[Rfam]
RNA sequence: GUUUCGGGCGAGGGAUCUUUGGGAGGUCUCUCUGGUAUGGAAACGAAAACUGUCCCGAUCUGGCACUGCCGCGGACGCCCAAACCGUGUGUUGU
Numbered sequence: 001g002u003u004u005c006g007g008g009c010g011a012g013g014g015a016u017c018u019u020u021g022g023g024a025g026g027u028c029u030c031u032c033u034g035g036u037a038u039g040g041a042a043a044c045g046a047a048a049a050c051u052g053u054c055c056c057g058a059u060c061u062g063g064c065a066c067u068g069c070c071g072c073g074g075a076c077g078c079c080c081a082a083a084c085c086g087u088g089u090g091u092u093g094u
Stems, first nucleotide, its partner, number of pairs: 001044005010032008065094002068091002070088005

Shown here is a 94-nucleotide sequence, a member of the family "Rhodo-rpoB RNA". By type it is a cis-regulatory element.